[Rfam]
RNA: Small nucleolar RNA SNORA17
RNA sequence: CCUGCCUCUGGAAGCAUUGCAGAUGUGACUGCUGUGUCACAUGUGUGUCAGUAGGUGGCAGAGAGGAGAGAGGCUAUGUCUACGCUCAGUGUUCUAACCGAUGGGCAUCUGAAUGGUUAUUAGCCUAACGUG
Dot-bracket structure: .(((((((((...((...(((..((((((......))))))..)))))...)))).)))))......(..((((((......((.(((((((((........))))).)))).)).....))))))..)...
Numbered sequence: 001c002c003u004g005c006c007u008c009u010g011g012a013a014g015c016a017u018u019g020c021a022g023a024u025g026u027g028a029c030u031g032c033u034g035u036g037u038c039a040c041a042u043g044u045g046u047g048u049c050a051g052u053a054g055g056u057g058g059c060a061g062a063g064a065g066g067a068g069a070g071a072g073g074c075u076a077u078g079u080c081u082a083c084g085c086u087c088a089g090u091g092u093u094c095u096a097a098c099c100g101a102u103g104g105g106c107a108u109c110u111g112a113a114u115g116g117u118u119a120u121u122a123g124c125c126u127a128a129c130g131u132g
Stems, first nucleotide, its partner, number of pairs: 002061005007055004014048002019046003024041006068129001071126006083115002086112004090107005